[Rfam]
RNA sequence: AACUAAUCUCACUUGGUGUGCGUUAGCGAUUGCAGUAGAAAUCCUUUUUAUGAGGCACGAUUAAAAAGAUUGUAACGUAAAGCGCGACCUUUA
Number, nucleotide and partner (000 for none) at each position: 001a000002a000003c000004u000005a000006a000007u000008c000009u000010c000011a000012c000013u000014u000015g000016g000017u000018g000019u000020g000021c000022g000023u000024u000025a000026g085027c084028g083029a000030u081031u080032g000033c000034a000035g076036u075037a000038g000039a000040a071041a070042u069043c068044c000045u000046u066047u065048u064049u063050a062051u000052g000053a000054g000055g000056c000057a000058c000059g000060a000061u000062u050063a049064a048065a047066a046067a000068g043069a042070u041071u040072g000073u000074a000075a036076c035077g000078u000079a000080a031081a030082g000083c028084g027085c026086g000087a000088c000089c000090u000091u000092u000093a000